This 128-nucleotide RNA sequence from Heterocephalus glaber belongs to the Rfam family "Small nucleolar RNA SNORA40".
About the family: The snoRNA ACA 40 belongs to the H/ACA family of snoRNAs and guides the pseudouridylation of 28S rRNA subunit at position U4565.
Pairs were carried over by alignment from the consensus structure, which was predicted with RNAalifold.

RNA sequence: UGUGUGUCCAUGUAUUUUUGUUCGGCCUGUGGAUAAAGACUUAGAGAAAGGUGCAAAAAAUAAAUUCUCUUUUGCAACCUAGAAGCCUCUGUUCACUGUGAGUUUUGACAACUGUGGGAUGGGGUAUU
Numbered sequence: 001u002g003u004g005u006g007u008c009c010a011u012g013u014a015u016u017u018u019u020g021u022u023c024g025g026c027c028u029g030u031g032g033a034u035a036a037a038g039a040c041u042u043a044g045a046g047a048a049a050g051g052u053g054c055a056a057a058a059a060a061u062a063a064a065u066u067c068u069c070u071u072u073u074g075c076a077a078c079c080u081a082g083a084a085g086c087c088u089c090u091g092u093u094c095a096c097u098g099u100g101a102g103u104u105u106u107g108a109c110a111a112c113u114g115u116g117g118g119a120u121g122g123g124g125u126a127u128u
Base pairs, nucleotide, nucleotide: 001055002054003053004052005051007049011045015039016038017037018036019035020034021033026031064125065124066123067122068121070119071118072117073116074115080107081106082105083104084103087100089098